[Rfam]
RNA: U7 small nuclear RNA
Organism: Macaca mulatta
RNA sequence: UACAGCUCCAGCUCUUUUCGAAUUUGUCCAGCAGGCCUUCUGGUCUUCACUGAACCGCCCCC
Dot-bracket structure: .................................(((.(((.(((....))))))..)))...
Numbered sequence: 001u002a003c004a005g006c007u008c009c010a011g012c013u014c015u016u017u018u019c020g021a022a023u024u025u026g027u028c029c030a031g032c033a034g035g036c037c038u039u040c041u042g043g044u045c046u047u048c049a050c051u052g053a054a055c056c057g058c059c060c061c062c
Stems, first nucleotide, its partner, number of pairs: 034059003038054003042051003